[Rfam]
The family of this 69-nucleotide RNA is "tRNA".
Rfam classes the family as a transfer RNA.

RNA sequence: AAGGUCUUAGCUUAAUUAAAGUAUUUGUUUUGCAUACAGAAGAUGUGGGGUAGUGUCCUGCAGAUCUUA
Numbered sequence: 001a002a003g004g005u006c007u008u009a010g011c012u013u014a015a016u017u018a019a020a021g022u023a024u025u026u027g028u029u030u031u032g033c034a035u036a037c038a039g040a041a042g043a044u045g046u047g048g049g050g051u052a053g054u055g056u057c058c059u060g061c062a063g064a065u066c067u068u069a
Base pairs, nucleotide, nucleotide: 001068002067003066004065005064006063007062010022011021012020013019024040025039026038027037028036045061046060047059048058049057